[Rfam]
Shown here is a 114-nucleotide RNA, a member of the family "malK-III RNA".
RNA sequence: CCCUGCGCAGCCACGUACGGGGUCCGUCCACGUCGCGCCGUCAGGCACGACAUCGCUUCGGCGACUGGGAUGCAAGGACCCGCGAUGGCGGUCAGGUCGGAGGACUACGCCAUG
Numbered sequence: 001c002c003c004u005g006c007g008c009a010g011c012c013a014c015g016u017a018c019g020g021g022g023u024c025c026g027u028c029c030a031c032g033u034c035g036c037g038c039c040g041u042c043a044g045g046c047a048c049g050a051c052a053u054c055g056c057u058u059c060g061g062c063g064a065c066u067g068g069g070a071u072g073c074a075a076g077g078a079c080c081c082g083c084g085a086u087g088g089c090g091g092u093c094a095g096g097u098c099g100g101a102g103g104a105c106u107a108c109g110c111c112a113u114g
Stems, first nucleotide, its partner, number of pairs: 014084003020081006026071003053064004